[Rfam]
RNA sequence: GCUAGGCAAGAUGUUGGCAUAGCUGAAUGCAAAUCAAAAAUCGAAAUUUCAAACUUUUUUUGAAUUUCGCGCGCUCAGCUUCGCCACAUCGUGCCAUGCG
Number, nucleotide and partner (000 for none) at each position: 001g000002c000003u000004a000005g095006g094007c093008a000009a000010g000011a089012u088013g087014u086015u000016g085017g084018c083019a000020u000021a000022g079023c078024u077025g076026a075027a000028u000029g000030c000031a000032a000033a000034u000035c000036a000037a000038a000039a000040a000041u000042c000043g000044a000045a000046a000047u000048u000049u000050c000051a000052a000053a000054c000055u000056u000057u000058u000059u000060u000061u000062g000063a000064a000065u000066u000067u000068c000069g000070c000071g000072c000073g000074c000075u026076c025077a024078g023079c022080u000081u000082c000083g018084c017085c016086a014087c013088a012089u011090c000091g000092u000093g007094c006095c005096a000097u000098g000099c000100g000